[Rfam]
RNA sequence: GCUUUUGUGCGGAUUGUAAUUGACGAAGGUAAAGCCCCGGGCCUGGUCGAUGGUAUGGAACAGCGGGUUCCAUGAGAACAUCGCAAGCAUGUAGUUCGGCGUCUGGUUGGCGACGAACAUCUUGCCCGAGGUGAACAUGUUGGCGCGGGUG
Numbered sequence: 001g002c003u004u005u006u007g008u009g010c011g012g013a014u015u016g017u018a019a020u021u022g023a024c025g026a027a028g029g030u031a032a033a034g035c036c037c038c039g040g041g042c043c044u045g046g047u048c049g050a051u052g053g054u055a056u057g058g059a060a061c062a063g064c065g066g067g068u069u070c071c072a073u074g075a076g077a078a079c080a081u082c083g084c085a086a087g088c089a090u091g092u093a094g095u096u097c098g099g100c101g102u103c104u105g106g107u108u109g110g111c112g113a114c115g116a117a118c119a120u121c122u123u124g125c126c127c128g129a130g131g132u133g134a135a136c137a138u139g140u141u142g143g144c145g146c147g148g149g150u151g
Stems, first nucleotide, its partner, number of pairs: 001030001003029004010022003034054003038049003061151002064147002067079004083144002086141006095131002097128003100124002107116003
Source information:
The family of this 151-nucleotide RNA sequence from Celeribacter ethanolicus is "Ruegeria cis2 sRNA". For this family Rfam cites "Experimental Identification of Small Non-Coding RNAs in the Model Marine Bacterium Ruegeria pomeroyi DSS-3" (Rivers et al., Front Microbiol, 2016). A search with the family's covariance model found it, with a score of 72 bits. Pairs were carried over by alignment from the consensus structure, which was predicted with RNAfold. By type it is a small RNA.